[Rfam]
RNA sequence: GUGGAGGGCCGCGACUGGCGCCAACGAGGUGGAACCGACCACCGUGGAGCGGCCCGGAUCAUCAGCAGUGGGCACCGUGCGCCUGGGUGACCGCC
Numbered sequence: 001g002u003g004g005a006g007g008g009c010c011g012c013g014a015c016u017g018g019c020g021c022c023a024a025c026g027a028g029g030u031g032g033a034a035c036c037g038a039c040c041a042c043c044g045u046g047g048a049g050c051g052g053c054c055c056g057g058a059u060c061a062u063c064a065g066c067a068g069u070g071g072g073c074a075c076c077g078u079g080c081g082c083c084u085g086g087g088u089g090a091c092c093g094c095c
Stems, first nucleotide, its partner, number of pairs: 006055007015046001017083005029042004073089004
The family of this 95-nucleotide RNA sequence from Actinospica robiniae is "ZMP/ZTP riboswitch aptamer (pfl RNA motif)". A reference for the family is Jones and Ferre-D'Amare (2015), "Recognition of the bacterial alarmone ZMP through long-distance association of two RNA subdomains", Nat Struct Mol Biol. The match comes from Rfam's covariance-model search (52 bits).